[Rfam]
Notes:
Rfam assigns this 106-nucleotide sequence from Canis lupus to the family "mir-8834 microRNA precursor family".
RNA sequence: AGGAGGAACAACCUCAGUGGUGUGGCCAGCUCUGGAUCCCUGGAUUCAGCUCCCGUAGUAACUAUGGAGCUCUCAGUCUGCAGCGGCCUGGAUGCUCCGGGGGCGG
Numbered sequence: 001a002g003g004a005g006g007a008a009c010a011a012c013c014u015c016a017g018u019g020g021u022g023u024g025g026c027c028a029g030c031u032c033u034g035g036a037u038c039c040c041u042g043g044a045u046u047c048a049g050c051u052c053c054c055g056u057a058g059u060a061a062c063u064a065u066g067g068a069g070c071u072c073u074c075a076g077u078c079u080g081c082a083g084c085g086g087c088c089u090g091g092a093u094g095c096u097c098c099g100g101g102g103g104c105g106g
Stems, first nucleotide, its partner, number of pairs: 002098004007093001009090002012086002014083001019078003024073002028071007036063001040058003
Rfam 15.1 lists 13,926 matches to the family in 17 species. Pairs were carried over by alignment from the consensus structure, which was predicted with RNAalifold. Gene Ontology terms of the family: miRNA-mediated post-transcriptional gene silencing and RISC complex. Lineage of the source: Eukaryota > Metazoa > Craniata > Sarcopterygii > Canis lupus.